RNA: mir-137 microRNA precursor family
Organism: Capitella teleta
RNA sequence: GUUGAGUACGGGUAUUCUUGGGUAAAUAAUAUACCAAGAAGGAUGUUAUUGCUUGAGAAUACACGUAGCAAAC
Numbered sequence: 001g002u003u004g005a006g007u008a009c010g011g012g013u014a015u016u017c018u019u020g021g022g023u024a025a026a027u028a029a030u031a032u033a034c035c036a037a038g039a040a041g042g043a044u045g046u047u048a049u050u051g052c053u054u055g056a057g058a059a060u061a062c063a064c065g066u067a068g069c070a071a072a073c
Base pairs, nucleotide, nucleotide: 001073002072003071008066009065010064012062013061014060015059016058017057018056019055020054021053022052023051025050026049027048028047029046030045031044032042